[Rfam]
Nucleotides: 043
Base pairs, nucleotide, nucleotide: 003043004042005041007038008037009036010035015032016031017030018029020027021026
Number, partner (000 for none) and nucleotide at each position: 001000g002000c003043g004042g005041u006000u007038c008037c009036g010035g011000u012000u013000c014000a015032c016031g017030c018029c019000a020027u021026g022000c023000g024000u025000u026021c027020a028000a029018g030017g031016c032015g033000a034000c035010c036009c037008g038007g039000c040000g041005g042004c043003c
Rfam assigns this 43-nucleotide sequence from Nonomuraea longispora to the family "L31-Actinobacteria ribosomal protein leader". By type it is a cis-regulatory leader. The family is grouped with related families in Rfam's "Ribosomal Protein L31 Leader clan". The family's consensus secondary structure is taken from published work. The organism belongs to Nonomuraea, within Bacteria.